[Rfam]
RNA sequence: UGGGGAUUUAGCAGCCUCCCUGAAUUAAGACACACUCGUGUCCAAGGUCUGC
Numbered sequence: 001u002g003g004g005g006a007u008u009u010a011g012c013a014g015c016c017u018c019c020c021u022g023a024a025u026u027a028a029g030a031c032a033c034a035c036u037c038g039u040g041u042c043c044a045a046g047g048u049c050u051g052c
Stems, first nucleotide, its partner, number of pairs: 001022006011052004029042005
The record is a 52-nucleotide RNA, which matches "chrB-b RNA" in Rfam. It is annotated as a cis-regulatory element. Pairs were carried over by alignment from the consensus structure, which is taken from published work.